[Rfam]
RNA sequence: CCAGAUGGUCGGACGGCCGCGGUUCGGGCGCAGCCCGAAUCGAGGAAAGUCCGGGCUCCACGGAAAAGCGGUGCCGGCUAACGGCCGGCGGGGGUCAAACCCCAGGGAAAGUGCCACAGAAAACAGACCGCUCGGCCGGAUCGGCACCCCCGUGGUGCCGCAACCCUGCCGGGUAAGGGUGAAAGGGUGCGGUAAGAGCGCACCGCGCCCCCGGCAACGGGGGCGGCACGGUAAACCCCACCGGGAGCAAGACCGAAUAGGGGCGGCCGGCGAGCGCGGCGGAUUCGUCCGUUCCGCGUCGGCGCAGAGGUUUUUCCGCCUCGCCGCCCGGGUUGGUCGCGUGAGGCGCGUCGCGAGGCGCGUCCCAGAGGAAUGGUCGUCCAUCGUCCGAGAGGGCGGUGACAGAACCCGGCUUACAGACCAUCUGGCGCC
Numbered sequence: 001c002c003a004g005a006u007g008g009u010c011g012g013a014c015g016g017c018c019g020c021g022g023u024u025c026g027g028g029c030g031c032a033g034c035c036c037g038a039a040u041c042g043a044g045g046a047a048a049g050u051c052c053g054g055g056c057u058c059c060a061c062g063g064a065a066a067a068g069c070g071g072u073g074c075c076g077g078c079u080a081a082c083g084g085c086c087g088g089c090g091g092g093g094g095u096c097a098a099a100c101c102c103c104a105g106g107g108a109a110a111g112u113g114c115c116a117c118a119g120a121a122a123a124c125a126g127a128c129c130g131c132u133c134g135g136c137c138g139g140a141u142c143g144g145c146a147c148c149c150c151c152g153u154g155g156u157g158c159c160g161c162a163a164c165c166c167u168g169c170c171g172g173g174u175a176a177g178g179g180u181g182a183a184a185g186g187g188u189g190c191g192g193u194a195a196g197a198g199c200g201c202a203c204c205g206c207g208c209c210c211c212c213g214g215c216a217a218c219g220g221g222g223g224c225g226g227c228a229c230g231g232u233a234a235a236c237c238c239c240a241c242c243g244g245g246a247g248c249a250a251g252a253c254c255g256a257a258u259a260g261g262g263g264c265g266g267c268c269g270g271c272g273a274g275c276g277c278g279g280c281g282g283a284u285u286c287g288u289c290c291g292u293u294c295c296g297c298g299u300c301g302g303c304g305c306a307g308a309g310g311u312u313u314u315u316c317c318g319c320c321u322c323g324c325c326g327c328c329c330g331g332g333u334u335g336g337u338c339g340c341g342u343g344a345g346g347c348g349c350g351u352c353g354c355g356a357g358g359c360g361c362g363u364c365c366c367a368g369a370g371g372a373a374u375g376g377u378c379g380u381c382c383a384u385c386g387u388c389c390g391a392g393a394g395g396g397c398g399g400u401g402a403c404a405g406a407a408c409c410c411g412g413c414u415u416a417c418a419g420a421c422c423a424u425c426u427g428g429c430g431c432c
Stems, first nucleotide, its partner, number of pairs: 001428010011417001012381007020042009047415003051412005056247004063316004069243005074088005089105001090103004106238002111236002113232003128178002130174007138166001186204006205227001206225008251338004261329006307322005345364008
Shown here is a 432-nucleotide sequence from Roseomonas mucosa, a member of the family "Bacterial RNase P class A". Gene Ontology terms of the family: ribonuclease P activity, dimeric ribonuclease P complex and tRNA processing. By type it is a ribozyme.